[Rfam]
RNA sequence: ACCAUCCUUUUCUUGGGGUUGUACUACUGUCCAAUGAAUGCAUAGUGAGGGCAGUACUGCUAACGCUUAAACAUCACACUCAUAUCAACUAAAACUCUGCUUUAUGUUGGUGCAAUUUUGGAAAAA
Numbered sequence: 001a002c003c004a005u006c007c008u009u010u011u012c013u014u015g016g017g018g019u020u021g022u023a024c025u026a027c028u029g030u031c032c033a034a035u036g037a038a039u040g041c042a043u044a045g046u047g048a049g050g051g052c053a054g055u056a057c058u059g060c061u062a063a064c065g066c067u068u069a070a071a072c073a074u075c076a077c078a079c080u081c082a083u084a085u086c087a088a089c090u091a092a093a094a095c096u097c098u099g100c101u102u103u104a105u106g107u108u109g110g111u112g113c114a115a116u117u118u119u120g121g122a123a124a125a126a
Base pairs, nucleotide, nucleotide: 006018007017008016009015021060022059023058026055027054028053029052030051031050032049038046039045083112084111085110086109087108090104091103092102093101095099
Dot-bracket structure: .....((((.....))))..(((..(((((((.....((.....))..)))))))..)))......................(((((..((((.(...).))))...)))))..............
Annotation
Rfam assigns this 126-nucleotide RNA from Saimiri boliviensis to the family "U4atac minor spliceosomal RNA". The family's RNA type in Rfam is spliceosomal small nuclear RNA. The source organism's lineage runs through Eukaryota, Teleostomi, Mammalia, Haplorrhini and Saimiri boliviensis. The family's consensus secondary structure is taken from published work.